[Rfam]
RNA: mir-34 microRNA precursor family
RNA sequence: AGUUACUAGGCAGUGUAGUUAGCUGAUUGCCAAAGGUAACAAUCACUAGCCACACAGCCGGGUAAAG
Numbered sequence: 001a002g003u004u005a006c007u008a009g010g011c012a013g014u015g016u017a018g019u020u021a022g023c024u025g026a027u028u029g030c031c032a033a034a035g036g037u038a039a040c041a042a043u044c045a046c047u048a049g050c051c052a053c054a055c056a057g058c059c060g061g062g063u064a065a066a067g
Base pairs, nucleotide, nucleotide: 003065004064005063006062009059010058013055014054015053016052018050019049020048021047022046024045025044026043027042028041029040